[Rfam]
chrB-b RNA: a 47-nucleotide sequence from Novosphingobium sp. Gsoil 351. By type it is a cis-regulatory element. Taxonomically the source falls in Novosphingobium (Bacteria, Pseudomonadota, Sphingomonadales, Sphingomonadaceae).
Nucleotides: 047
Base pairs, nucleotide, nucleotide: 001022002021003020004019005018006017011047012046013045014044015043026037027036028035029034
Number, partner (000 for none) and nucleotide at each position: 001022a002021c003020g004019g005018g006017a007000c008000g009000a010000a011047g012046c013045g014044g015043c016000c017006u018005c019004c020003c021002g022001u023000c024000c025000a026037g027036g028035c029034g030000u031000c032000c033000g034029c035028g036027c037026c038000c039000a040000a041000g042000c043015g044014u045013c046012g047011c